The family of this 81-nucleotide RNA sequence from Parambassis ranga is "mir-363 microRNA precursor family". The family is grouped with related families in Rfam's "mir-19 clan". The organism belongs to Parambassis, within Eukaryota.

[Rfam]
RNA sequence: GCUGUUUUCGGGUGGAUGACUCCGCAAUUUCAAUACAAUACACAAUGUCAAAAAUUGCACAGUAUCCAUCUGUAAUCCGCC
Numbered sequence: 001g002c003u004g005u006u007u008u009c010g011g012g013u014g015g016a017u018g019a020c021u022c023c024g025c026a027a028u029u030u031c032a033a034u035a036c037a038a039u040a041c042a043c044a045a046u047g048u049c050a051a052a053a054a055u056u057g058c059a060c061a062g063u064a065u066c067c068a069u070c071u072g073u074a075a076u077c078c079g080c081c
Stems, first nucleotide, its partner, number of pairs: 009072009019063002024058007
Rfam links the family to the GO terms miRNA-mediated post-transcriptional gene silencing and RISC complex.
Pairs were carried over by alignment from the consensus structure, which was predicted with RNAalifold.
On this family, see Linsen et al., BMC Genomics 2010: "Small RNA expression and strain specificity in the rat".
The family has 22 seed sequences and 620 matches in Rfam 15.1.